A member of the RNA family "Small nucleolar RNA R64/Z200 family" from Chenopodium quinoa, 94 nucleotides long. The family has 14 seed sequences and 748 matches in Rfam 15.1. By type it is a C/D-box small nucleolar RNA. The literature on the family includes a 2002 paper in Mol Cell Biol by Galardi et al., "Purified box C/D snoRNPs are able to reproduce site-specific 2'-O-methylation of target RNA in vitro".
[Rfam]
RNA sequence: AUUUUGCGAUGAUGAUUUAUGGAAUUAUUCACAUGUCAGACUUCGGAGGUUGCUUGCAACCUAUGAGAUAAAAAUCCUUAUUUCUGAGUAAAUU
Numbered sequence: 001a002u003u004u005u006g007c008g009a010u011g012a013u014g015a016u017u018u019a020u021g022g023a024a025u026u027a028u029u030c031a032c033a034u035g036u037c038a039g040a041c042u043u044c045g046g047a048g049g050u051u052g053c054u055u056g057c058a059a060c061c062u063a064u065g066a067g068a069u070a071a072a073a074a075u076c077c078u079u080a081u082u083u084c085u086g087a088g089u090a091a092a093u094u
Stems, first nucleotide, its partner, number of pairs: 001094001003092005048061004